[Rfam]
RNA sequence: UCAUUUAAGAAGGAGCACCCGCUUCUCACCUGAUCGACACAUAUGUAGUUAACAGGUUUCGACGAAAAGAGUUAAUGUAUAAAUUAUACAUUUCGUUUAGUGUGGGUGUUCUAUAAACACCCACACUUUUUUUAUUGA
Numbered sequence: 001u002c003a004u005u006u007a008a009g010a011a012g013g014a015g016c017a018c019c020c021g022c023u024u025c026u027c028a029c030c031u032g033a034u035c036g037a038c039a040c041a042u043a044u045g046u047a048g049u050u051a052a053c054a055g056g057u058u059u060c061g062a063c064g065a066a067a068a069g070a071g072u073u074a075a076u077g078u079a080u081a082a083a084u085u086a087u088a089c090a091u092u093u094c095g096u097u098u099a100g101u102g103u104g105g106g107u108g109u110u111c112u113a114u115a116a117a118c119a120c121c122c123a124c125a126c127u128u129u130u131u132u133u134a135u136u137g138a
Stems, first nucleotide, its partner, number of pairs: 011026006028057003036050003039046002101125010
Dot-bracket structure: ..........((((((....)))))).(((.....(((((....)).)))....)))...........................................((((((((((.....)))))))))).............

This 138-nucleotide RNA from Bacillus mesophilus belongs to the Rfam family "Ribosomal protein L20 leader". This family is a putative r-protein leader autoregulatory structure found in B. subtilis and other low-GC Gram-positive bacteria. It is located in the 5' untranslated regions of mRNAs encoding initiation factor 3 followed by ribosomal proteins L35 and L20 (infC-rpmI-rplT). A Rho-independent transcription terminator structure that is probably involved in regulation is included at the 3' end. By type it is a cis-regulatory leader. A reference for the family is Zengel and Lindahl (1994), "Diverse mechanisms for regulating ribosomal protein synthesis in Escherichia coli", Prog Nucleic Acid Res Mol Biol. The base pairs follow the family's consensus structure, which was predicted with CMfinder. Lineage of the source: Bacteria > Bacillati > Bacilli > Bacillaceae > Bacillus.